[Rfam]
The record is an 84-nucleotide RNA sequence from Streptomyces tubercidicus, which matches "nrdJ RNA" in Rfam. The source organism's lineage runs through Bacteria, Bacillati, Actinomycetota, Kitasatosporales and Streptomyces. It scores 53 bits against the family's covariance model.

RNA sequence: ACCUGUACCGGGGCGAGAGCAGGGCGUCCCGGCAGCAGAAAGACAUACACCGUGCCACGGAAUGCGUGCGCACAUAUGGGCGUU
Numbered sequence: 001a002c003c004u005g006u007a008c009c010g011g012g013g014c015g016a017g018a019g020c021a022g023g024g025c026g027u028c029c030c031g032g033c034a035g036c037a038g039a040a041a042g043a044c045a046u047a048c049a050c051c052g053u054g055c056c057a058c059g060g061a062a063u064g065c066g067u068g069c070g071c072a073c074a075u076a077u078g079g080g081c082g083u084u
Base pairs, nucleotide, nucleotide: 004037005036006034008032009031010030011029012028013027014026015025052073053072054071055070057067058066